A member of the RNA family "TPP riboswitch aptamer (THI element)" from Albibacterium bauzanense, 99 nucleotides long. The match comes from Rfam's covariance-model search (71 bits).
[Rfam]
RNA sequence: AACAAUUGCACGGGGUGCUUAAUCAAAAAGAUUAGGCUGAGAUAAAACCCGAUACCUGAUUUGGAUAAUGCCAACGUAGGGAUGCAGCUAAGAUAUUUC
Numbered sequence: 001a002a003c004a005a006u007u008g009c010a011c012g013g014g015g016u017g018c019u020u021a022a023u024c025a026a027a028a029a030g031a032u033u034a035g036g037c038u039g040a041g042a043u044a045a046a047a048c049c050c051g052a053u054a055c056c057u058g059a060u061u062u063g064g065a066u067a068a069u070g071c072c073a074a075c076g077u078a079g080g081g082a083u084g085c086a087g088c089u090a091a092g093a094u095a096u097u098u099c
Stems, first nucleotide, its partner, number of pairs: 006087005011051004016045001017037008055080004061074004
Rfam links the family to the GO term thiamine pyrophosphate binding.